[Rfam]
RNA sequence: GUAGCAUCGAUGAUGAAUCCAUAAAAAUUGUCAUCCUUGCACUAUGAUUGCUAGUGAAGAAAAAACAAUGGGCUUUUAAAUUCUGAGAUGCUU
Numbered sequence: 001g002u003a004g005c006a007u008c009g010a011u012g013a014u015g016a017a018u019c020c021a022u023a024a025a026a027a028u029u030g031u032c033a034u035c036c037u038u039g040c041a042c043u044a045u046g047a048u049u050g051c052u053a054g055u056g057a058a059g060a061a062a063a064a065a066c067a068a069u070g071g072g073c074u075u076u077u078a079a080a081u082u083c084u085g086a087g088a089u090g091c092u093u
Base pairs, nucleotide, nucleotide: 003092004091005090006089007088008087
The family of this 93-nucleotide RNA sequence from Arabis nemorensis is "Small nucleolar RNA snoR26".
The family's consensus secondary structure was predicted with WAR.
The organism belongs to Arabis, within Eukaryota.
Rfam classes the family as a C/D-box small nucleolar RNA.
Gene Ontology terms of the family: nucleolus and RNA processing.